[Rfam]
RNA sequence: CCCCUGUGAUGAGUUGCCAUGCUAAUACGGAGACACCAGGUAGGGAGUUUUACCCUAACUUGGGUGUUGUUGAAAUAAACUCUUUCUCGUAAAUGCUGAGGGGC
Numbered sequence: 001c002c003c004c005u006g007u008g009a010u011g012a013g014u015u016g017c018c019a020u021g022c023u024a025a026u027a028c029g030g031a032g033a034c035a036c037c038a039g040g041u042a043g044g045g046a047g048u049u050u051u052a053c054c055c056u057a058a059c060u061u062g063g064g065u066g067u068u069g070u071u072g073a074a075a076u077a078a079a080c081u082c083u084u085u086c087u088c089g090u091a092a093a094u095g096c097u098g099a100g101g102g103g104c
Stems, first nucleotide, its partner, number of pairs: 001103004041057005
RNA: Small nucleolar RNA U6-53/MBII-28